[Rfam]
RNA sequence: CGGAAGUUUCAUCUACAAAUGGAUAAGAUUUUUGUCUUAUGUAUACGAUCGUUGAAAACACAAGUAGCAAUGACCACAUGUCUUGCUUUAAGCAAGACAUGGGGUAUUGAUACUUU
Numbered sequence: 001c002g003g004a005a006g007u008u009u010c011a012u013c014u015a016c017a018a019a020u021g022g023a024u025a026a027g028a029u030u031u032u033u034g035u036c037u038u039a040u041g042u043a044u045a046c047g048a049u050c051g052u053u054g055a056a057a058a059c060a061c062a063a064g065u066a067g068c069a070a071u072g073a074c075c076a077c078a079u080g081u082c083u084u085g086c087u088u089u090a091a092g093c094a095a096g097a098c099a100u101g102g103g104g105u106a107u108u109g110a111u112a113c114u115u116u
Stems, first nucleotide, its partner, number of pairs: 008023005060116001062115005068109004073105002077101002080098005

The record is a 116-nucleotide RNA from Musa balbisiana, which matches "Plastid-psbA-1 3UTR RNA" in Rfam. Rfam classes the family as a cis-regulatory element. Rfam describes the family as follows. Plastid psbA-1 is a non-coding RNA (ncRNA) present in plastids. It was identified in inverted repeat sequences in the 3 prime untranslate region (3UTR) of photosystem II quinone-binding protein (psbA).